[Rfam]
RNA: Bacteroides sRNA BTnc049
Organism: Bacteroides sp. An322
RNA sequence: ACAACAGAAGUUGUGAAACUUCUUAUAGAAUAGUUUAGUUAAGUCUAGUUUAGUUUUUGUGUUGUGAUACUCCAACCAUUAGAGAAUGGGUGGAGUAUCUUUUUU
Numbered sequence: 001a002c003a004a005c006a007g008a009a010g011u012u013g014u015g016a017a018a019c020u021u022c023u024u025a026u027a028g029a030a031u032a033g034u035u036u037a038g039u040u041a042a043g044u045c046u047a048g049u050u051u052a053g054u055u056u057u058u059g060u061g062u063u064g065u066g067a068u069a070c071u072c073c074a075a076c077c078a079u080u081a082g083a084g085a086a087u088g089g090g091u092g093g094a095g096u097a098u099c100u101u102u103u104u105u
Stems, first nucleotide, its partner, number of pairs: 001058001003056001007022006032051002035048004067098008077088003